[Rfam]
A member of the RNA family "A. fumigatus sRNA Afu_254" from Aspergillus cristatus, 152 nucleotides long. The literature on the family includes a 2008 paper in Nucleic Acids Res by Jochl et al., "Small ncRNA transcriptome analysis from Aspergillus fumigatus suggests a novel mechanism for regulation of protein synthesis". Rfam classes the family as a small RNA. The base pairs follow the family's consensus structure, which was predicted with WAR.
RNA sequence: CUCACAAUCUACUACAAGCCUUUCAAAUCUUUUCAAGACUUUUCAGUCAAACCAACUACCACUCUCGCAAUGUCUCCCUGCGCCUGCAACUGCUGCUCCGGCAACUGCAACUCUUGCUCUUGCAGCUCGUGCAAGGUAUGUCUUCUCUUCUA
Numbered sequence: 001c002u003c004a005c006a007a008u009c010u011a012c013u014a015c016a017a018g019c020c021u022u023u024c025a026a027a028u029c030u031u032u033u034c035a036a037g038a039c040u041u042u043u044c045a046g047u048c049a050a051a052c053c054a055a056c057u058a059c060c061a062c063u064c065u066c067g068c069a070a071u072g073u074c075u076c077c078c079u080g081c082g083c084c085u086g087c088a089a090c091u092g093c094u095g096c097u098c099c100g101g102c103a104a105c106u107g108c109a110a111c112u113c114u115u116g117c118u119c120u121u122g123c124a125g126c127u128c129g130u131g132c133a134a135g136g137u138a139u140g141u142c143u144u145c146u147c148u149u150c151u152a
Stems, first nucleotide, its partner, number of pairs: 079103003086096003107132003116123002